[Rfam]
Nucleotides: 102
Stems, first nucleotide, its partner, number of pairs: 002101004010090004014085006020078003028058002031056005037050002042096005064074003
Number, partner (000 for none) and nucleotide at each position: 001000u002101a003100u004099g005098g006000g007000g008000u009000a010090g011089a012088a013087c014085c015084u016083a017082a018081c019080g020078c021077g022076u023000u024000g025000u026000u027000a028058g029057u030000g031056c032055c033054g034053a035052u036000a037050c038049u039000u040000a041000u042096g043095a044094a045093u046092g047000u048000g049038a050037g051000g052035a053034u054033c055032g056031g057029a058028c059000a060000a061000a062000g063000u064074g065073g066072u067000u068000a069000a070000a071000a072066g073065c074064c075000u076022a077021c078020g079000g080019u081018g082017u083016u084015a085014g086000u087013g088012u089011u090010c091000a092046c093045a094044u095043u096042c097000g098005c099004c100003a101002u102000u
THF (Tetrahydrofolate) riboswitch aptamer: a 102-nucleotide RNA from Acetilactobacillus jinshanensis. Tetrahydrofolate (THF) riboswitch was first reported for Ames et al. as an RNA motif in 5' untranslated (5'-UTR)regions of folate transport and biosynthesis genes in Firmicutes genomes. A reference for the family is Trausch et al. (2011), "The structure of a tetrahydrofolate-sensing riboswitch reveals two ligand binding sites in a single aptamer", Structure. The base pairs follow the family's consensus structure, which is taken from published work.